[Rfam]
RNA sequence: AAUACGUGGAGUUCAGCAACCACUUUAAAUAACGAGGCGAAACUGAAAAGCCAUACGAGUAGGAAUUUU
Numbered sequence: 001a002a003u004a005c006g007u008g009g010a011g012u013u014c015a016g017c018a019a020c021c022a023c024u025u026u027a028a029a030u031a032a033c034g035a036g037g038c039g040a041a042a043c044u045g046a047a048a049a050g051c052c053a054u055a056c057g058a059g060u061a062g063g064a065a066u067u068u069u
Stems, first nucleotide, its partner, number of pairs: 006023004036052003043063002
A member of the RNA family "DUF805 RNA" from Brumimicrobium salinarum, 69 nucleotides long. Taxonomically the source falls in Brumimicrobium (Bacteria, Pseudomonadati, Flavobacteriia, Flavobacteriales). Rfam 15.1 lists 281 matches to the family in 219 species. The match comes from Rfam's covariance-model search (73 bits). Its Rfam clan is "DUF805 clan".